[Rfam]
Small nucleolar RNA snoR99: an 87-nucleotide RNA from Hibiscus syriacus. Gene Ontology terms of the family: RNA processing and nucleolus. Taxonomically the source falls in Hibiscus (Eukaryota, Embryophyta, Malvales, Malvaceae). The match comes from Rfam's covariance-model search (44 bits). The family's RNA type in Rfam is H/ACA-box small nucleolar RNA.

Nucleotides: 087
Stems, first nucleotide, its partner, number of pairs: 025081003029077002038067006045060001
Number, partner (000 for none) and nucleotide at each position: 001000g002000c003000g004000c005000u006000u007000u008000g009000u010000u011000c012000c013000u014000u015000a016000u017000u018000u019000g020000u021000a022000a023000u024000a025081u026080c027079c028000a029077u030076c031000u032000c033000a034000c035000u036000u037000u038067g039066u040065c041064a042063g043062u044000u045060g046000c047000c048000u049000u050000u051000u052000u053000g054000u055000g056000u057000g058000g059000u060045u061000u062043g063042c064041u065040g066039a067038u068000c069000a070000u071000u072000u073000u074000a075000a076030g077029a078000a079027g080026g081025a082000a083000a084000a085000u086000g087000g